[Rfam]
RNA: L31-Actinobacteria ribosomal protein leader
Organism: Saccharothrix violaceirubra
RNA sequence: CCGGCUCCGGUUCACCCGUGCCAGCGGGACCCGGCGGCC
Dot-bracket structure: ..(((.((((....(((((....)))))..))))..)))